[Rfam]
RNA sequence: AUAAUGAUACACCUUGAGAUUAGCCAGCACGCAGUGGUGGAGGUGAGCUACCUGUGA
Numbered sequence: 001a002u003a004a005u006g007a008u009a010c011a012c013c014u015u016g017a018g019a020u021u022a023g024c025c026a027g028c029a030c031g032c033a034g035u036g037g038u039g040g041a042g043g044u045g046a047g048c049u050a051c052c053u054g055u056g057a
Stems, first nucleotide, its partner, number of pairs: 012054001013023002024040003028036003041053003
RNA: pemK RNA